RNA sequence: GAUCCGCAGCCGGACGGAUCACAUGACACAGGCAGUCGGUGACAUUUUGUCCCCCAACUGCAGCCGAGUUCAGCGGCCGUGUCAGCAGUUGUGCAUUGGCACAGAGGUCUUUACCUCCGUACUGCGUUCGUACUGACC
Numbered sequence: 001g002a003u004c005c006g007c008a009g010c011c012g013g014a015c016g017g018a019u020c021a022c023a024u025g026a027c028a029c030a031g032g033c034a035g036u037c038g039g040u041g042a043c044a045u046u047u048u049g050u051c052c053c054c055c056a057a058c059u060g061c062a063g064c065c066g067a068g069u070u071c072a073g074c075g076g077c078c079g080u081g082u083c084a085g086c087a088g089u090u091g092u093g094c095a096u097u098g099g100c101a102c103a104g105a106g107g108u109c110u111u112u113a114c115c116u117c118c119g120u121a122c123u124g125c126g127u128u129c130g131u132a133c134u135g136a137c138c
Stems, first nucleotide, its partner, number of pairs: 001020006024084006031078001032061005063077004085125005091102004104117001106115003

This 138-nucleotide RNA sequence belongs to the Rfam family "xerDC RNA". By type it is a cis-regulatory element.